RNA sequence: GAUCAACUGAAUAGACGACCGAAGACAGCAGGUGCAACUUAGUACUGCAUAAGUCCUGCCGAGGUUGACGUUAACGAUGGUAUCUCCUGGGUUUAGACUAGGAAGAUCUGUUGUUCGUUUACCCCGGCCCUGGCGUCGGGGUUUUGUAUGGGUUGGG
Numbered sequence: 001g002a003u004c005a006a007c008u009g010a011a012u013a014g015a016c017g018a019c020c021g022a023a024g025a026c027a028g029c030a031g032g033u034g035c036a037a038c039u040u041a042g043u044a045c046u047g048c049a050u051a052a053g054u055c056c057u058g059c060c061g062a063g064g065u066u067g068a069c070g071u072u073a074a075c076g077a078u079g080g081u082a083u084c085u086c087c088u089g090g091g092u093u094u095a096g097a098c099u100a101g102g103a104a105g106a107u108c109u110g111u112u113g114u115u116c117g118u119u120u121a122c123c124c125c126g127g128c129c130c131u132g133g134c135g136u137c138g139g140g141g142u143u144u145u146g147u148a149u150g151g152g153u154u155g156g157g
Stems, first nucleotide, its partner, number of pairs: 028059005034048003121142008
Dot-bracket structure: ...........................(((((.(((.........)))......))))).............................................................((((((((......))))))))...............